RNA: mir-275 microRNA precursor family
Organism: Tenebrio molitor
RNA sequence: UUGCCUGUUGCUACGCGUGUUACCUCAGUACCUAGGCUGGCGUUUUUUGAAAGUCAGGUACCUGAAGUAGCGCGCGCAGCGCCGGUGC
Dot-bracket structure: ........((((.(.(((((((.......(((..((((.............)))).)))........))))))).).)))).......